[Rfam]
RNA sequence: CGAGCCGGCCGGGCGGUCGCGUCGGGUCCCUUCACCGGGACCCGCCGAGGAAGGUCCGGGCUCCACAGGGCAGGGUGGUCGGUAACCCCGACCCGGGGCAACCCGCGGGACAGUGCCACAGAGAGCAGACCGCCUUCCCCACCUGGGGAAGGUAAGGGUGAAAGGGUGGUGUAAGAGACCACCAGCGCCCACGGUGACGUGGGCGGCUAGGUAAACCCCACCCGGAGCAAGGUCAAGAAGGGACACUCCACAAGGAGCGUCCUGCGCGCGACGUUCGAGGGCUGCCCGCCCAAGCCGCGCGGGUAGACCGCACGAGGCCGCCGGCAACGACGGCCCCAGAUGGAUGACCGCCCCUUCGCGCAAGCGAGGGACAGAACCCGGCCUACAGGCCGACUCGUCCG
Numbered sequence: 001c002g003a004g005c006c007g008g009c010c011g012g013g014c015g016g017u018c019g020c021g022u023c024g025g026g027u028c029c030c031u032u033c034a035c036c037g038g039g040a041c042c043c044g045c046c047g048a049g050g051a052a053g054g055u056c057c058g059g060g061c062u063c064c065a066c067a068g069g070g071c072a073g074g075g076u077g078g079u080c081g082g083u084a085a086c087c088c089c090g091a092c093c094c095g096g097g098g099c100a101a102c103c104c105g106c107g108g109g110a111c112a113g114u115g116c117c118a119c120a121g122a123g124a125g126c127a128g129a130c131c132g133c134c135u136u137c138c139c140c141a142c143c144u145g146g147g148g149a150a151g152g153u154a155a156g157g158g159u160g161a162a163a164g165g166g167u168g169g170u171g172u173a174a175g176a177g178a179c180c181a182c183c184a185g186c187g188c189c190c191a192c193g194g195u196g197a198c199g200u201g202g203g204c205g206g207c208u209a210g211g212u213a214a215a216c217c218c219c220a221c222c223c224g225g226a227g228c229a230a231g232g233u234c235a236a237g238a239a240g241g242g243a244c245a246c247u248c249c250a251c252a253a254g255g256a257g258c259g260u261c262c263u264g265c266g267c268g269c270g271a272c273g274u275u276c277g278a279g280g281g282c283u284g285c286c287c288g289c290c291c292a293a294g295c296c297g298c299g300c301g302g303g304u305a306g307a308c309c310g311c312a313c314g315a316g317g318c319c320g321c322c323g324g325c326a327a328c329g330a331c332g333g334c335c336c337c338a339g340a341u342g343g344a345u346g347a348c349c350g351c352c353c354c355u356u357c358g359c360g361c362a363a364g365c366g367a368g369g370g371a372c373a374g375a376a377c378c379c380g381g382c383c384u385a386c387a388g389g390c391c392g393a394c395u396c397g398u399c400c401g
Stems, first nucleotide, its partner, number of pairs: 001397004006392005011386001012352007020047002023044008052384003056381005061227004068287004073223005078092005093107001094105004108218002113216002115212003130157002132153009165183006185207001186205008231309004241300001244297001279291004316335005322329002
Rfam assigns this 401-nucleotide sequence from Sinosporangium siamense to the family "Bacterial RNase P class A". Taxonomically the source falls in Sinosporangium (Bacteria, Bacillati, Streptosporangiales, Streptosporangiaceae). Rfam classes the family as a ribozyme. It scores 282 bits against the family's covariance model.